[Rfam]
This 59-nucleotide RNA sequence from Sarcophilus harrisii belongs to the Rfam family "mir-7398 microRNA precursor family". The family has 23 seed sequences and 132 matches in Rfam 15.1. Its family is annotated with RISC complex and miRNA-mediated post-transcriptional gene silencing in the Gene Ontology. Lineage of the source: Eukaryota > Dipnotetrapodomorpha > Amniota > Dasyuromorphia > Sarcophilus. It scores 48 bits against the family's covariance model.

RNA sequence: UGUGGAGAGGGGAGUGAGGGUACCGUGUGCUAUUGGGUAACCCUUCCUACUCUCACAUU
Number, nucleotide and partner (000 for none) at each position: 001u000002g056003u055004g054005g000006a053007g052008a051009g050010g000011g048012g000013a000014g046015u000016g044017a000018g042019g000020g000021u000022a038023c037024c036025g000026u000027g000028u000029g000030c000031u000032a000033u000034u000035g000036g024037g023038u022039a000040a000041c000042c018043c000044u016045u000046c014047c000048u011049a000050c009051u008052c007053u006054c004055a003056c002057a000058u000059u000